A member of the RNA family "R2 RNA element" from Agrilus planipennis, 207 nucleotides long.
Rfam's curators write: This family represents the 3' UTR region of the R2 retrotransposable element. This family is known to interact with the R2-encoded reverse transcriptase in a reaction known as target primed reverse transcription (TPRT).
Pairs were carried over by alignment from the consensus structure, which is taken from published work.

[Rfam]
Nucleotides: 207
Base pairs, nucleotide, nucleotide: 033053036052060205061204062203063202097201098200100198101197103194104193112149113148114147115146116145121141122140123139124138125137126136127135128134151177153176154175155174156173157172
Number, partner (000 for none) and nucleotide at each position: 001000u002000c003000u004000u005000a006000a007000a008000c009000a010000a011000u012000a013000g014000a015000a016000a017000a018000u019000g020000a021000a022000a023000a024000c025000g026000a027000a028000u029000a030000u031000a032000c033053u034000a035000c036052c037000a038000c039000a040000u041000a042000a043000a044000a045000u046000g047000a048000a049000a050000a051000u052036g053033a054000a055000a056000c057000a058000c059000a060205u061204u062203g063202u064000c065000c066000u067000g068000a069000u070000a071000c072000c073000u074000c075000a076000a077000u078000u079000g080000g081000u082000c083000c084000u085000a086000g087000a088000a089000c090000g091000g092000c093000c094000u095000g096000a097201g098200g099000u100198a101197g102000a103194g104193g105000a106000g107000u108000u109000u110000c111000a112149g113148u114147c115146g116145g117000u118000a119000g120000g121141u122140c123139c124138g125137a126136g127135g128134a129000c130000u131000u132000c133000u134128u135127c136126c137125u138124c139123g140122g141121g142000a143000a144000u145116c146115c147114g148113a149112c150000a151177c152000u153176a154175c155174c156173c157172a158000g159000u160000c161000g162000u163000a164000c165000a166000g167000g168000c169000g170000g171000c172157u173156g174155g175154g176153u177151g178000u179000c180000u181000u182000u183000u184000g185000a186000a187000g188000a189000u190000u191000u192000c193104c194103c195000c196000u197101c198100u199000u200098c201097c202063a203062c204061g205060a206000a207000a